[Rfam]
RNA sequence: GGUUGCAACAUCCCCGUGGAUUGGGUGACAAGUCACAGCGAAUCCACUGCAACC
Number, nucleotide and partner (000 for none) at each position: 001g054002g053003u052004u051005g050006c049007a048008a000009c000010a000011u000012c000013c040014c038015c000016g047017u046018g045019g044020a043021u042022u041023g039024g000025g036026u035027g034028a033029c000030a000031a000032g000033u028034c027035a026036c025037a000038g014039c023040g013041a022042a021043u020044c019045c018046a017047c016048u007049g006050c005051a004052a003053c002054c001
The family of this 54-nucleotide RNA sequence from Edaphobacter aggregans is "nadA riboswitch". NCBI's taxonomy places the organism under Bacteria, Pseudomonadati, Terriglobia, Acidobacteriaceae, Edaphobacter. The match comes from Rfam's covariance-model search (63 bits).